[Rfam]
RNA: tRNA
Organism: Mycolicibacterium smegmatis
RNA sequence: CGGGGUGUGGCGCAGCUUGGUAGCGCGCUUCGUUCGGGACGAAGAGGUCGUGGGUUCAAAUCCCGCCACCCCGA
Numbered sequence: 001c002g003g004g005g006u007g008u009g010g011c012g013c014a015g016c017u018u019g020g021u022a023g024c025g026c027g028c029u030u031c032g033u034u035c036g037g038g039a040c041g042a043a044g045a046g047g048u049c050g051u052g053g054g055u056u057c058a059a060a061u062c063c064c065g066c067c068a069c070c071c072c073g074a
Stems, first nucleotide, its partner, number of pairs: 001073007010026004028044005050066005
Dot-bracket structure: (((((((..((((.........)))).(((((.......))))).....(((((.......)))))))))))).